[Rfam]
Nucleotides: 042
Stems, first nucleotide, its partner, number of pairs: 015032006
Number, partner (000 for none) and nucleotide at each position: 001000g002000c003000a004000u005000u006000u007000u008000g009000a010000u011000u012000a013000a014000c015032g016031c017030c018029c019028g020027c021000c022000c023000u024000g025000g026000c027020g028019c029018g030017g031016g032015c033000c034000a035000c036000a037000c038000g039000g040000a041000a042000g